[Rfam]
RNA sequence: UUCAGGAAGGAAGGCAAGAUGUUGGCAUAGCUGUUGAGUUGAGAGCCCUGCUAUGCCAUCAAAUUGCCAUCUUUCUCUCCC
Numbered sequence: 001u002u003c004a005g006g007a008a009g010g011a012a013g014g015c016a017a018g019a020u021g022u023u024g025g026c027a028u029a030g031c032u033g034u035u036g037a038g039u040u041g042a043g044a045g046c047c048c049u050g051c052u053a054u055g056c057c058a059u060c061a062a063a064u065u066g067c068c069a070u071c072u073u074u075c076u077c078u079c080c081c
Base pairs, nucleotide, nucleotide: 005076006075007074008073009072010071011070013068014067015066016065017064020061021060023058024057025056026055027054028053029052030051031050
Dot-bracket structure: ....(((((((.(((((..((.(((((((((..................))))))))).))..))))).))))))).....